[Rfam]
RNA sequence: AAUUCUGUUGGUAAGAAUAAAGAGAAACAUAUGUAUUCUAUAACCUACAUGUACCAAUAGGAAUGGUU
Numbered sequence: 001a002a003u004u005c006u007g008u009u010g011g012u013a014a015g016a017a018u019a020a021a022g023a024g025a026a027a028c029a030u031a032u033g034u035a036u037u038c039u040a041u042a043a044c045c046u047a048c049a050u051g052u053a054c055c056a057a058u059a060g061g062a063a064u065g066g067u068u
Stems, first nucleotide, its partner, number of pairs: 003022002006019004043067003052059002
Rfam assigns this 68-nucleotide RNA from Tetracentron sinense to the family "Plastid-clpP 5UTR RNA". On this family, see Richter et al., Plant Commun 2023: "Retrograde signaling in plants: A critical review focusing on the GUN pathway and beyond". The family's RNA type in Rfam is cis-regulatory element. Rfam's curators write: Plastid clpP is a non-coding RNA (ncRNA) recognised in plastids. It scores 56 bits against the family's covariance model.